[Rfam]
RNA sequence: UGGUGUUUGCUGGAUGUAACAGCAACUCCAUGUGGAAGCUGUGUCUGUUCCAGUGGAGGUGCUGUUACCUGCAGAGACCACCG
Numbered sequence: 001u002g003g004u005g006u007u008u009g010c011u012g013g014a015u016g017u018a019a020c021a022g023c024a025a026c027u028c029c030a031u032g033u034g035g036a037a038g039c040u041g042u043g044u045c046u047g048u049u050c051c052a053g054u055g056g057a058g059g060u061g062c063u064g065u066u067a068c069c070u071g072c073a074g075a076g077a078c079c080a081c082c083g
Stems, first nucleotide, its partner, number of pairs: 010074003016068008026058006033052003
A member of the RNA family "mir-194 microRNA precursor family" from Oryzias latipes, 83 nucleotides long. Lineage of the source: Eukaryota > Craniata > Percomorphaceae > Atherinomorphae > Oryzias. The sequence is in the family's curated seed alignment.